[Rfam]
RNA sequence: CCAACUCUAACAGUCCACCCGUACAUAUGUUUCCGUGCUUGACAGCGAAGCUCAAUCACGUUACAAUGAAAGGGUAGCCGGUUAUUGAAGUU
Numbered sequence: 001c002c003a004a005c006u007c008u009a010a011c012a013g014u015c016c017a018c019c020c021g022u023a024c025a026u027a028u029g030u031u032u033c034c035g036u037g038c039u040u041g042a043c044a045g046c047g048a049a050g051c052u053c054a055a056u057c058a059c060g061u062u063a064c065a066a067u068g069a070a071a072g073g074g075u076a077g078c079c080g081g082u083u084a085u086u087g088a089a090g091u092u
Stems, first nucleotide, its partner, number of pairs: 017075004022070001025067002028065003034060004039055004

The family of this 92-nucleotide sequence from Caenorhabditis elegans is "mir-52 microRNA precursor family".
Rfam 15.1 lists 11 matches to the family in 8 species.
On this family, see Lau et al., Science 2001: "An abundant class of tiny RNAs with probable regulatory roles in Caenorhabditis elegans".
Pairs were carried over by alignment from the consensus structure, which was predicted with RNAalifold.